[Rfam]
RNA sequence: AAAAGACCAAUAUGUCUAUCUUCAUAAAUGAAGAAUUGAUAUAUUGGUCUUUUAUUG
Dot-bracket structure: ((((((((((((((...((((((......))))).)...))))))))))))))....
RNA: Plastid-psbA-3 3UTR RNA